[Rfam]
RNA sequence: UUGGUUUAAAUCAUUGUGGGUCUAAACUUUGAAAAUUGAACCAACACAGUGGUGGGACAUAUAUUGAUUUUAUCCAA
Numbered sequence: 001u002u003g004g005u006u007u008a009a010a011u012c013a014u015u016g017u018g019g020g021u022c023u024a025a026a027c028u029u030u031g032a033a034a035a036u037u038g039a040a041c042c043a044a045c046a047c048a049g050u051g052g053u054g055g056g057a058c059a060u061a062u063a064u065u066g067a068u069u070u071u072a073u074c075c076a077a
Stems, first nucleotide, its partner, number of pairs: 001077004006072001008070006015063004022055003026050003031047001

MIR5269 microRNA precursor family: a 77-nucleotide sequence from Medicago truncatula. The base pairs follow the family's consensus structure, which was predicted with RNAalifold. The source organism's lineage runs through Eukaryota, Streptophytina, Mesangiospermae, eudicotyledons and Medicago. The match comes from Rfam's covariance-model search (61 bits).